[Rfam]
RNA sequence: CUCGCGGCUUCGUCAGCAAUGCCGCAAUUUCGCCGUCAACGCGCCAACGACCCGCCAAGUUGCGCCGCUCAAUUACGGUCGUUGCCUCGACGGCCCGGUUCUGCUGAGCCCCGGCUUGUCAGCCCCCAGCCCCCCGGAGUUCCGGUGGAGCCGGGCCAUCGGGUCGAGGCCAACUAGCGGCUGGCAUUGCGCCGGCCGUUUU
Numbered sequence: 001c002u003c004g005c006g007g008c009u010u011c012g013u014c015a016g017c018a019a020u021g022c023c024g025c026a027a028u029u030u031c032g033c034c035g036u037c038a039a040c041g042c043g044c045c046a047a048c049g050a051c052c053c054g055c056c057a058a059g060u061u062g063c064g065c066c067g068c069u070c071a072a073u074u075a076c077g078g079u080c081g082u083u084g085c086c087u088c089g090a091c092g093g094c095c096c097g098g099u100u101c102u103g104c105u106g107a108g109c110c111c112c113g114g115c116u117u118g119u120c121a122g123c124c125c126c127c128a129g130c131c132c133c134c135c136g137g138a139g140u141u142c143c144g145g146u147g148g149a150g151c152c153g154g155g156c157c158a159u160c161g162g163g164u165c166g167a168g169g170c171c172a173a174c175u176a177g178c179g180g181c182u183g184g185c186a187u188u189g190c191g192c193c194g195g196c197c198g199u200u201u202u
Stems, first nucleotide, its partner, number of pairs: 036167001040049002084165001086163005092157011106142004111137004122130002178198008

Shown here is a 202-nucleotide sequence from Allobosea spartocytisi, a member of the family "Bradyrhizobiaceae sRNA BjrC174".
It scores 49 bits against the family's covariance model.
The base pairs follow the family's consensus structure.
Taxonomically the source falls in Allobosea (Bacteria, Pseudomonadota, Hyphomicrobiales, Alloboseaceae).